Source information: The record is a 136-nucleotide sequence from Chloroflexi bacterium AL-W, which matches "FMN riboswitch aptamer (RFN element)" in Rfam. The source organism's lineage runs through Bacteria, Bacillati and Chloroflexota. The family's consensus secondary structure is taken from published work.
[Rfam]
RNA sequence: AGUAAUCUUCGGGGCAGGGUGUAAUUCCCGACCGGCGGUAAUGCGUUCUUAUAAGUAACGAUAAGCCCGCGAGCCAAUGGCAGGACUCGGUGAGAUUCCGAGGCCGACGGUAUAGUCCGGAUGGGAGAAGAUUAAC
Numbered sequence: 001a002g003u004a005a006u007c008u009u010c011g012g013g014g015c016a017g018g019g020u021g022u023a024a025u026u027c028c029c030g031a032c033c034g035g036c037g038g039u040a041a042u043g044c045g046u047u048c049u050u051a052u053a054a055g056u057a058a059c060g061a062u063a064a065g066c067c068c069g070c071g072a073g074c075c076a077a078u079g080g081c082a083g084g085a086c087u088c089g090g091u092g093a094g095a096u097u098c099c100g101a102g103g104c105c106g107a108c109g110g111u112a113u114a115g116u117c118c119g120g121a122u123g124g125g126a127g128a129a130g131a132u133u134a135a136c
Base pairs, nucleotide, nucleotide: 003134004133005132006131007130008129009128010127017029018028019027031116032115033106034105035070036069037068038067065104066103075080086102087101088100089099090098108119109118110117